RNA sequence: CCCUGGCUCUAGCAGCACAGAAAUAUUGGCACUGGGAAGCAGAGUCUGCCAGUAUUAGCUGUGCUGCUCCAGGCAGGG
Numbered sequence: 001c002c003c004u005g006g007c008u009c010u011a012g013c014a015g016c017a018c019a020g021a022a023a024u025a026u027u028g029g030c031a032c033u034g035g036g037a038a039g040c041a042g043a044g045u046c047u048g049c050c051a052g053u054a055u056u057a058g059c060u061g062u063g064c065u066g067c068u069c070c071a072g073g074c075a076g077g078g
Stems, first nucleotide, its partner, number of pairs: 001078003005074001007072001010071001011068008022056008
The record is a 78-nucleotide RNA sequence from Erinaceus europaeus, which matches "mir-16 microRNA precursor family" in Rfam. The organism belongs to Erinaceus, within Eukaryota. It scores 72 bits against the family's covariance model. Gene Ontology terms of the family: miRNA-mediated post-transcriptional gene silencing and RISC complex. Rfam 15.1 lists 4,705 matches to the family in 758 species.